This 103-nucleotide RNA sequence from Nonlabens ponticola belongs to the Rfam family "SAM riboswitch aptamer (S box leader)". A search with the family's covariance model found it, with a score of 65 bits. Its family is annotated with regulation of gene expression in the Gene Ontology. Lineage of the source: Bacteria > Pseudomonadati > Flavobacteriales > Flavobacteriaceae > Nonlabens.
[Rfam]
RNA sequence: GAGUUAUAAAGAAAGGUUCAGGGAUUAGACCCGUUGAGACCUUGGCAACCCUGCAACUGCAGAAGGUGCCUCAUUCUACCACGCUUUUGUGGACAGAUAACGA
Number, nucleotide and partner (000 for none) at each position: 001g000002a000003g101004u100005u099006a098007u097008a000009a000010a000011g000012a000013a043014a042015g041016g040017u039018u000019c000020a000021g032022g031023g030024a000025u000026u078027a077028g076029a075030c023031c022032c021033g000034u000035u000036g000037a000038g000039a017040c016041c015042u014043u013044g070045g069046c068047a067048a000049c066050c065051c062052u061053g060054c059055a000056a000057c000058u000059g054060c053061a052062g051063a000064a000065g050066g049067u047068g046069c045070c044071u000072c000073a000074u095075u029076c028077u027078a026079c092080c091081a090082c089083g088084c000085u000086u000087u000088u083089g082090u081091g080092g079093a000094c000095a074096g000097a007098u006099a005100a004101c003102g000103a000